Description
A member of the RNA family "Bag-1 internal ribosome entry site (IRES)" from Peromyscus maniculatus, 370 nucleotides long. This family represents the bag-1 internal ribosome entry site (IRES). When expressed the BAG-1 protein is known to enhance the anti-apoptotic properties of Bcl-2. Although bag-1 translation usually occurs via a cap-dependent mechanism it has been found to contain a IRES in its 5' UTR. Translation via the IRES has been found to be common following heat shock when cap-dependent scanning is compromised. On this family, see Coldwell et al., Oncogene 2001: "The p36 isoform of BAG-1 is translated by internal ribosome entry following heat shock". The family's consensus secondary structure was predicted with PFOLD. Lineage of the source: Eukaryota > Amniota > Theria > Boreoeutheria > Peromyscus maniculatus.
RNA sequence: UGGGCGGUGAACAAACGCGGGCCUGGCGGAUCGCAGCGGCCUUCGGCGACCGCGAGAGGACCGGGAGCCGCUGGGACCCCGGCUGCGCGCCUCUCGGCCCGGUCGGGAGCUGCGCCAGUCGGAGCCCCGGGCCGAGCGCGGCUUGCCUGCCUCUCAGCGUUCAUCUGGCCGCAGCGCAGCCAGCGGGCAUGACCGAUCCACCAGGGGCGCCGCCGCCUGCCCUGGCAGGCCGCGGGUGAAAAACAAAGUCCGUCCCCGCUUCACUCAGAGCGAGAAGGUGGCUCCCAGCAGGGAAUUGACCCGGGGAAAGAGAGUGACCCGCAGCAAGAAAGUGACCGGGACCAAGGAGGAGACCCAGGUGGAGGAGGAG
Numbered sequence: 001u002g003g004g005c006g007g008u009g010a011a012c013a014a015a016c017g018c019g020g021g022c023c024u025g026g027c028g029g030a031u032c033g034c035a036g037c038g039g040c041c042u043u044c045g046g047c048g049a050c051c052g053c054g055a056g057a058g059g060a061c062c063g064g065g066a067g068c069c070g071c072u073g074g075g076a077c078c079c080c081g082g083c084u085g086c087g088c089g090c091c092u093c094u095c096g097g098c099c100c101g102g103u104c105g106g107g108a109g110c111u112g113c114g115c116c117a118g119u120c121g122g123a124g125c126c127c128c129g130g131g132c133c134g135a136g137c138g139c140g141g142c143u144u145g146c147c148u149g150c151c152u153c154u155c156a157g158c159g160u161u162c163a164u165c166u167g168g169c170c171g172c173a174g175c176g177c178a179g180c181c182a183g184c185g186g187g188c189a190u191g192a193c194c195g196a197u198c199c200a201c202c203a204g205g206g207g208c209g210c211c212g213c214c215g216c217c218u219g220c221c222c223u224g225g226c227a228g229g230c231c232g233c234g235g236g237u238g239a240a241a242a243a244c245a246a247a248g249u250c251c252g253u254c255c256c257c258g259c260u261u262c263a264c265u266c267a268g269a270g271c272g273a274g275a276a277g278g279u280g281g282c283u284c285c286c287a288g289c290a291g292g293g294a295a296u297u298g299a300c301c302c303g304g305g306g307a308a309a310g311a312g313a314g315u316g317a318c319c320c321g322c323a324g325c326a327a328g329a330a331a332g333u334g335a336c337c338g339g340g341a342c343c344a345a346g347g348a349g350g351a352g353a354c355c356c357a358g359g360u361g362g363a364g365g366a367g368g369a370g
Stems, first nucleotide, its partner, number of pairs: 020104004025099003038093002042089001044052003061082005068075001144352001146350003150346001166189002169186003206223002209220002212217001257272005